[Rfam]
Vault RNA: a 94-nucleotide RNA from Aramus guarauna. About the family: This family of RNAs are found as part of the enigmatic vault ribonucleoprotein complex. The complex consists of a major vault protein (MVP), two minor vault proteins (VPARP and TEP1), and several small untranslated RNA molecules. Lineage of the source: Eukaryota > Craniata > Teleostomi > Dipnotetrapodomorpha > Aramus. It is annotated as a non-coding RNA gene. The match comes from Rfam's covariance-model search (45 bits). The literature on the family includes a 2009 paper in Mol Biol Evol by Stadler et al., "Evolution of Vault RNAs". The base pairs follow the family's consensus structure, which is taken from published work.

RNA sequence: GGGCCAGCUAUAGCCCAGCAGUUACUUCGGUGUUUCACAAGCUUGUGUCUUGCCCUGUGAGGGGUUCGAUCCUGUGGGCACCUCUGGAUCAUUU
Numbered sequence: 001g002g003g004c005c006a007g008c009u010a011u012a013g014c015c016c017a018g019c020a021g022u023u024a025c026u027u028c029g030g031u032g033u034u035u036c037a038c039a040a041g042c043u044u045g046u047g048u049c050u051u052g053c054c055c056u057g058u059g060a061g062g063g064g065u066u067c068g069a070u071c072c073u074g075u076g077g078g079c080a081c082c083u084c085u086g087g088a089u090c091a092u093u094u
Stems, first nucleotide, its partner, number of pairs: 002089001004087004013079004018075004027069004